[Rfam]
RNA sequence: GCCGAGCAAGUAGCGAUUGCUUGUAACCCGAGCGGGGGCUUUGAGGUGGUGUGGAUGUCAACUGUGGCGCACGGGCCUGGGUCUGGUGUCGCAACCUGCGGCCCGCCCGUUCCAAGUUGAGUAGUGGGCUUGUGGGCGAUUUGGCGAAGGCCAGGCCGUCCCGGCUCCUAAAGCGGCGGGCAAUGCGUGAGGCUGGUUUCACAGAGCAGCGAAUACCGCCCGCUUCCAACGGUGGAAGGAUAACGGGCUGCUGCGCUCCAGGGGCCCGCUUCGGCCCAUGCGCCCUCUCUGGCAGACCACCAUCUUU
Dot-bracket structure: (((((((((.......))))))....(((....))))))...(((((((((.(..((((((..(.(.((((.(((((.((((((((.(.((((....((((((((.((.(((((.((((.(.(((.((.(((.(((((.((((((....)))))).)))))))).))(....).(((((....(.(((....(((......)))....))).)..))))).))).)))))..)))))))....)))))))))))).)))))..)))).....))))).))))).)..).)))))..)))))))))).

Plant signal recognition particle RNA: a 307-nucleotide RNA from Paspalum vaginatum. Its family is annotated with SRP-dependent cotranslational protein targeting to membrane, signal sequence recognition and signal recognition particle, endoplasmic reticulum targeting in the Gene Ontology. A reference for the family is Rosenblad et al. (2009), "Kinship in the SRP RNA family", RNA Biol. It is annotated as a non-coding RNA gene. The source organism's lineage runs through Eukaryota, Viridiplantae, Euphyllophyta, Poaceae and Paspalum. The match comes from Rfam's covariance-model search (218 bits). The family has 63 seed sequences and 4,988 matches in Rfam 15.1.